[Rfam]
RNA: Small nucleolar RNA SNORA55
RNA sequence: GCACCCACCUCAUUCCCGUUCCUUGCUGUGCAGUGCAGGUCUGGGGGCUCUUGGUGCUACAGCACAGCAGUGGAAAUCCAGAUGAGUUCUUCUUCCCUGGUGUGGGACUCAUCUCUACACCUCUGCAACACCA
Numbered sequence: 001g002c003a004c005c006c007a008c009c010u011c012a013u014u015c016c017c018g019u020u021c022c023u024u025g026c027u028g029u030g031c032a033g034u035g036c037a038g039g040u041c042u043g044g045g046g047g048c049u050c051u052u053g054g055u056g057c058u059a060c061a062g063c064a065c066a067g068c069a070g071u072g073g074a075a076a077u078c079c080a081g082a083u084g085a086g087u088u089c090u091u092c093u094u095c096c097c098u099g100g101u102g103u104g105g106g107a108c109u110c111a112u113c114u115c116u117a118c119a120c121c122u123c124u125g126c127a128a129c130a131c132c133a
Base pairs, nucleotide, nucleotide: 001057002056003055004054005053013047014046015045016044017043018042021039022038067126068125069124070123072121080114081113082112083111084110085109086108087107095105096104